[Rfam]
RNA sequence: UUUUCUUUCUCCUACAUCGACCUGUGCCAGAGCUCCCGUCCACCCUUAGGGGUGUGUUCGGUUGCAGCCCUGGCAGUUCGUCCGUUACCAAGGAGCCAUCACAGUUUCCAUGAUGUCAAUUUCCGGUCGACAGGUCUGAGAGAGAGUCGGCAGCGUUCUGAAGCCUGAGUUCACCGCGAGGUUCGAGCUCGGUGGAUGGCGCUGUCAGGGCAACUGAUUCCUAAUCCCUUCUGCCAGGCCGUCGGCCUAUUACGCUUGGGAAAAACCCAGUUACGCCUACAUAU
Numbered sequence: 001u002u003u004u005c006u007u008u009c010u011c012c013u014a015c016a017u018c019g020a021c022c023u024g025u026g027c028c029a030g031a032g033c034u035c036c037c038g039u040c041c042a043c044c045c046u047u048a049g050g051g052g053u054g055u056g057u058u059c060g061g062u063u064g065c066a067g068c069c070c071u072g073g074c075a076g077u078u079c080g081u082c083c084g085u086u087a088c089c090a091a092g093g094a095g096c097c098a099u100c101a102c103a104g105u106u107u108c109c110a111u112g113a114u115g116u117c118a119a120u121u122u123c124c125g126g127u128c129g130a131c132a133g134g135u136c137u138g139a140g141a142g143a144g145a146g147u148c149g150g151c152a153g154c155g156u157u158c159u160g161a162a163g164c165c166u167g168a169g170u171u172c173a174c175c176g177c178g179a180g181g182u183u184c185g186a187g188c189u190c191g192g193u194g195g196a197u198g199g200c201g202c203u204g205u206c207a208g209g210g211c212a213a214c215u216g217a218u219u220c221c222u223a224a225u226c227c228c229u230u231c232u233g234c235c236a237g238g239c240c241g242u243c244g245g246c247c248u249a250u251u252a253c254g255c256u257u258g259g260g261a262a263a264a265a266c267c268c269a270g271u272u273a274c275g276c277c278u279a280c281a282u283a284u
Base pairs, nucleotide, nucleotide: 019136020135021134022133023132024131025130026074027073028072029071030070032068033067034066035064036061037060038059040056041054042053043051045050082129084127085126086125092117093116095114097112148204149203150202163193164192165191167190168189169188170187171186172185174181175180209277210276211275212272213271214270215269216268225261226260227259228258233255234254237247238246239245240244
RNA: A. fumigatus sRNA Afu_309